[Rfam]
A member of the RNA family "Purine riboswitch aptamer" from Gorillibacterium sp., 102 nucleotides long. A search with the family's covariance model found it, with a score of 74 bits. The family's consensus secondary structure is taken from published work. The organism belongs to Gorillibacterium, within Bacteria. Rfam links the family to the GO term purine nucleobase biosynthetic process.
RNA sequence: GGUUAAAUCAAUUGAAUAACUCGUAUAAUAGCGGGAAUUUGGCCCGCGAGUAUCUACCUGGUCACCGGAAAUGACUGGACUACGAGCGCAUAGGCCACCGCG
Numbered sequence: 001g002g003u004u005a006a007a008u009c010a011a012u013u014g015a016a017u018a019a020c021u022c023g024u025a026u027a028a029u030a031g032c033g034g035g036a037a038u039u040u041g042g043c044c045c046g047c048g049a050g051u052a053u054c055u056a057c058c059u060g061g062u063c064a065c066c067g068g069a070a071a072u073g074a075c076u077g078g079a080c081u082a083c084g085a086g087c088g089c090a091u092a093g094g095c096c097a098c099c100g101c102g
Stems, first nucleotide, its partner, number of pairs: 020086006029049001031047005058078007